[Rfam]
RNA sequence: GAAAGCAGGAGAGGCAAUCGCAAGAAAGUUUUAUUUUGGAAACAAAAUAAAACUUUCUUGAGGAAAGUCCGGGCUCCCAAAUGGUCAGGCUUGCUGGGUAAUUCCCAGUGCGGGCAACCGUGAGGAUAGUGCCACAGAAACAUACCGCCUAAUACUGUAUGUAUGGCAAGGGUGCAAGGGUGUGGUAAGAGCGCACCAGCAACAUUGAGAAGUGUUGGCUAGGUAAACCCCGGCUGGGAGCAAGGCUUAGUAGAUUUAUGACCAUUACACAAUCUACUUAGAAGCGCCGCUUGAGACUGUGAAGUAAUUCCAGUCCUAGAUAGAUGAUUGCCCAUCUUAAUUUAGAUGAACAGAACCCGGCUUAUGACCUGCUUUCUAAU
Number, nucleotide and partner (000 for none) at each position: 001g376002a375003a374004a373005g372006c371007a370008g369009g368010a000011g365012a000013g332014g331015c330016a329017a328018u327019c326020g000021c060022a059023a058024g057025a056026a055027a054028g053029u052030u051031u050032u049033a048034u047035u046036u045037u044038g000039g000040a000041a000042a000043c000044a037045a036046a035047a034048u033049a032050a031051a030052a029053c028054u027055u026056u025057c024058u023059u022060g021061a000062g000063g000064a000065a363066a362067g361068u000069c360070c359071g358072g357073g356074c240075u239076c238077c237078c000079a000080a000081a000082u000083g270084g000085u000086c000087a000088g235089g234090c233091u000092u232093g231094c108095u107096g106097g105098g104099u000100a000101a000102u000103u000104c098105c097106c096107a095108g094109u123110g121111c120112g119113g118114g000115c000116a000117a000118c113119c112120g111121u110122g000123a109124g230125g229126a000127u000128a000129g228130u227131g224132c223133c222134a000135c000136a000137g000138a000139a000140a000141c000142a000143u000144a000145c171146c170147g167148c166149c165150u000151a000152a164153u163154a162155c161156u000157g000158u000159a000160u000161g155162u154163a153164u152165g149166g148167c147168a000169a000170g146171g145172g000173u000174g000175c000176a000177a000178g000179g197180g196181u195182g194183u193184g192185g000186u000187a000188a000189g000190a000191g000192c184193g183194c182195a181196c180197c179198a000199g219200c217201a216202a215203c214204a213205u212206u211207g000208a000209g000210a000211a206212g205213u204214g203215u202216u201217g200218g000219c199220u000221a000222g133223g132224u131225a000226a000227a130228c129229c125230c124231c093232g092233g090234c089235u088236g000237g077238g076239a075240g074241c000242a000243a000244g288245g287246c286247u000248u000249a000250g000251u000252a000253g000254a279255u000256u000257u276258a275259u000260g000261a000262c000263c000264a000265u272266u271267a000268c000269a000270c083271a266272a265273u000274c000275u258276a257277c000278u000279u254280a000281g000282a000283a000284g000285c000286g246287c245288c244289g000290c000291u000292u000293g000294a000295g315296a314297c313298u312299g311300u000301g310302a309303a308304g000305u000306a000307a000308u303309u302310c301311c299312a298313g297314u296315c295316c000317u000318a000319g000320a000321u000322a000323g000324a000325u000326g019327a018328u017329u016330g015331c014332c013333c000334a000335u000336c000337u000338u000339a000340a000341u000342u000343u000344a000345g000346a000347u000348g000349a000350a000351c000352a000353g000354a000355a000356c073357c072358c071359g070360g069361c067362u066363u065364a000365u011366g000367a000368c009369c008370u007371g006372c005373u004374u003375u002376c001377u000378a000379a000380u000
Shown here is a 380-nucleotide RNA sequence from Prochlorococcus marinus, a member of the family "Bacterial RNase P class A". By type it is a ribozyme. The sequence is in the family's curated seed alignment. Taxonomically the source falls in Prochlorococcus marinus (Bacteria, Cyanobacteriota, Prochlorococcaceae, Prochlorococcus).